[Rfam]
RNA sequence: GGUCAUGAGUACCAGCGCGAAGCCCCGGCUCGCUGGUCGGCAACCCUCCAACCGCGGUGGGGUGCCCCGGGUGAUGACCAGGUUGUUCGUGGCAAGUGCGAACGGCAAGCGCGCGUA
Numbered sequence: 001g002g003u004c005a006u007g008a009g010u011a012c013c014a015g016c017g018c019g020a021a022g023c024c025c026c027g028g029c030u031c032g033c034u035g036g037u038c039g040g041c042a043a044c045c046c047u048c049c050a051a052c053c054g055c056g057g058u059g060g061g062g063u064g065c066c067c068c069g070g071g072u073g074a075u076g077a078c079c080a081g082g083u084u085g086u087u088c089g090u091g092g093c094a095a096g097u098g099c100g101a102a103c104g105g106c107a108a109g110c111g112c113g114c115g116u117a
Stems, first nucleotide, its partner, number of pairs: 001079004009038001011037006021030002039066003044062003048057002082106010